About this RNA
Shown here is a 92-nucleotide RNA from Cuscuta campestris, a member of the family "Small nucleolar RNA Z157/R69/R10". Gene Ontology terms of the family: nucleolus and RNA processing. A search with the family's covariance model found it, with a score of 65 bits.
[Rfam]
RNA sequence: AGAUUUGCGAUGAUGAAGAAAUGGUUUAGACUAGAGUUUCUGAUCUUCUCUUUGAAGGUUGAAGACAAACCCUUGGCUGUCUGAGCACAUCA
Numbered sequence: 001a002g003a004u005u006u007g008c009g010a011u012g013a014u015g016a017a018g019a020a021a022u023g024g025u026u027u028a029g030a031c032u033a034g035a036g037u038u039u040c041u042g043a044u045c046u047u048c049u050c051u052u053u054g055a056a057g058g059u060u061g062a063a064g065a066c067a068a069a070c071c072c073u074u075g076g077c078u079g080u081c082u083g084a085g086c087a088c089a090u091c092a
Stems, first nucleotide, its partner, number of pairs: 002091003006087003037064004045057004